[Rfam]
RNA: Plastid-rps18 3UTR RNA
RNA sequence: GGCUAGUAUUUUACGAUUAAGACGCACCUGCCUCUUGUAUAGAUCAUGUAUUAAUCC
Number, nucleotide and partner (000 for none) at each position: 001g000002g000003c000004u000005a000006g000007u000008a000009u000010u000011u000012u000013a000014c000015g000016a000017u000018u037019a036020a035021g034022a033023c000024g031025c030026a000027c000028c000029u000030g025031c024032c000033u022034c021035u020036u019037g018038u000039a000040u000041a000042g000043a000044u000045c000046a000047u000048g000049u000050a000051u000052u000053a000054a000055u000056c000057c000